[Rfam]
The family of this 90-nucleotide sequence from Gossypium raimondii is "mir-166 microRNA precursor family". The organism belongs to Gossypium, within Eukaryota. A reference for the family is Reinhart et al. (2002), "MicroRNAs in plants", Genes Dev. Pairs were carried over by alignment from the consensus structure, which was predicted with PFOLD. This family represents the plant microRNA (miRNA) precursor mir-166.

RNA sequence: GUUGCGGGGAAUGUUGUCUGGUUCGAAGUCAUUCAUAUGAAACUUAAUUGUCUUUUGAAUGAUUUCGGACCAGGCUUCAUUCCCCCCAAC
Numbered sequence: 001g002u003u004g005c006g007g008g009g010a011a012u013g014u015u016g017u018c019u020g021g022u023u024c025g026a027a028g029u030c031a032u033u034c035a036u037a038u039g040a041a042a043c044u045u046a047a048u049u050g051u052c053u054u055u056u057g058a059a060u061g062a063u064u065u066c067g068g069a070c071c072a073g074g075c076u077u078c079a080u081u082c083c084c085c086c087c088a089a090c
Base pairs, nucleotide, nucleotide: 001090002089003088004087006085007084008083009082010081011080012079013078016075017074018073019072020071021070024067025066026065